[Rfam]
RNA sequence: AAUUGAAUAGUUUUCCGAGCUCCUUUGUCUAAAAGACUAUCUCAUGACGGAGGAGCCUGAGCAAACCGCUCACGGGGUCAGUCAGGAAACCAGCUGGCCUUCACUGAUGAAAAGGAAGCAGAAAAUACAGGAU
Numbered sequence: 001a002a003u004u005g006a007a008u009a010g011u012u013u014u015c016c017g018a019g020c021u022c023c024u025u026u027g028u029c030u031a032a033a034a035g036a037c038u039a040u041c042u043c044a045u046g047a048c049g050g051a052g053g054a055g056c057c058u059g060a061g062c063a064a065a066c067c068g069c070u071c072a073c074g075g076g077g078u079c080a081g082u083c084a085g086g087a088a089a090c091c092a093g094c095u096g097g098c099c100u101u102c103a104c105u106g107a108u109g110a111a112a113a114g115g116a117a118g119c120a121g122a123a124a125a126u127a128c129a130g131g132a133u
Base pairs, nucleotide, nucleotide: 003127012118013117014116015115016114019056020055021054022053023052024051025050026049027048028047029046034042035041036040058072059071060070061069062068075100076099077098078097079096080095081094082093085090101110102109